[Rfam]
Nucleotides: 122
Base pairs, nucleotide, nucleotide: 001122003120004119005117
Number, partner (000 for none) and nucleotide at each position: 001122c002000u003120a004119g005117c006000a007000a008000u009000g010000a011000u012000g013000a014000a015000a016000a017000g018000c019000g020000c021000a022000g023000g024000g025000g026000u027000a028000c029000g030000u031000a032000c033000c034000u035000c036000a037000g038000c039000u040000g041000a042000u043000a044000a045000u046000g047000g048000g049000a050000g051000c052000u053000g054000a055000g056000u057000g058000u059000u060000g061000g062000u063000g064000u065000u066000c067000u068000c069000a070000g071000c072000u073000c074000a075000g076000u077000g078000g079000g080000c081000a082000u083000g084000u085000g086000g087000u088000c089000u090000g091000c092000c093000g094000a095000c096000a097000c098000g099000a100000u101000a102000c103000a104000g105000a106000c107000g108000c109000c110000u111000g112000a113000c114000u115000g116000a117005g118000u119004c120003u121000u122001g
A member of the RNA family "Small nucleolar RNA SNORD94" from Oncorhynchus mykiss, 122 nucleotides long.
Gene Ontology terms of the family: RNA processing and nucleolus.
Pairs were carried over by alignment from the consensus structure, which was predicted with RNAalifold.